[Rfam]
RNA sequence: CGAACAUUUGGACCGUCGGUCUACCGAGCAAUAUCGCCCGCUCGAGGGAAGAUCUUUCCCUUCGUCGU
Numbered sequence: 001c002g003a004a005c006a007u008u009u010g011g012a013c014c015g016u017c018g019g020u021c022u023a024c025c026g027a028g029c030a031a032u033a034u035c036g037c038c039c040g041c042u043c044g045a046g047g048g049a050a051g052a053u054c055u056u057u058c059c060c061u062u063c064g065u066c067g068u
Stems, first nucleotide, its partner, number of pairs: 004065002010059003015053003020049003025044005
Record summary:
A member of the RNA family "mir-2774 microRNA precursor family" from Bombyx mori, 68 nucleotides long. Gene Ontology terms of the family: miRNA-mediated post-transcriptional gene silencing and RISC complex. On this family, see Liu et al., BMC Genomics 2010: "MicroRNAs of Bombyx mori identified by Solexa sequencing". The source organism's lineage runs through Eukaryota, Eumetazoa, Lepidoptera, Bombycoidea and Bombyx. The match comes from Rfam's covariance-model search (66 bits).